[Rfam]
Annotation
The family of this 65-nucleotide RNA from Oryza nivara is "MIR2907 microRNA precursor family". Its family is annotated with RISC complex and miRNA-mediated post-transcriptional gene silencing in the Gene Ontology. On this family, see Jian et al., Genomics 2010: "Identification of novel stress-regulated microRNAs from Oryza sativa L". The base pairs follow the family's consensus structure, which was predicted with RNAalifold. The family has 3 seed sequences and 136 matches in Rfam 15.1.
RNA sequence: UAGCGCUCCUAUCUCCGCCCACUCGACCGCCACGUGGCAGCCGAGUGAGGGCCUCGGGGUGGCAC
Number, nucleotide and partner (000 for none) at each position: 001u000002a000003g063004c062005g000006c000007u059008c058009c057010u056011a000012u000013c000014u000015c000016c000017g052018c051019c050020c049021a000022c045023u044024c043025g042026a000027c040028c000029g000030c037031c036032a000033c000034g000035u000036g031037g030038c000039a000040g027041c000042c025043g024044a023045g022046u000047g000048a000049g020050g019051g018052c017053c000054u000055c000056g010057g009058g008059g007060u000061g000062g004063c003064a000065c000